SAM riboswitch aptamer (S box leader): a 142-nucleotide sequence from Polaribacter porphyrae. Its family is annotated with regulation of gene expression in the Gene Ontology. It scores 59 bits against the family's covariance model.
RNA sequence: AUGUUAUCAAGAAAGGUGGAGGGAUUAGACCCAAUGAAACCUUAGCAACCCUUUAUAAAUACUAAAUAAAAUGGUUUUUAUAAAGAAGGUGCUAAAUUCUACCCAAGUACUGAACUUGUUUCAGUGUCUCAAAGAAUGAGAU
Numbered sequence: 001a002u003g004u005u006a007u008c009a010a011g012a013a014a015g016g017u018g019g020a021g022g023g024a025u026u027a028g029a030c031c032c033a034a035u036g037a038a039a040c041c042u043u044a045g046c047a048a049c050c051c052u053u054u055a056u057a058a059a060u061a062c063u064a065a066a067u068a069a070a071a072u073g074g075u076u077u078u079u080a081u082a083a084a085g086a087a088g089g090u091g092c093u094a095a096a097u098u099c100u101a102c103c104c105a106a107g108u109a110c111u112g113a114a115c116u117u118g119u120u121u122c123a124g125u126g127u128c129u130c131a132a133a134g135a136a137u138g139a140g141a142u
Base pairs, nucleotide, nucleotide: 006142007141008140013043014042015041016040017039021032022031023030026101027100028099029098044093045092046091047090049089050088051085052084053083054082055081056080057079058078059077097139
Dot-bracket structure: .....(((....(((((...(((..[[[[)))......)))))((((.(((((((((((.................)))))))))..))))))...(]]]].....................................))))